RNA sequence: GAAGGAAGGAAGCAUGGUAAUGUGCGCAAAAAUUGAUUUGGUUCUUCAGGUCUGCCCUCUCUUAUGUCUUCCAGCUUUGAUUUGGGGGCAUGCUUCCGUUGCAAAACG
Dot-bracket structure: ...........((((......))))..............(..((.....(((.((..................))...))).....))..).................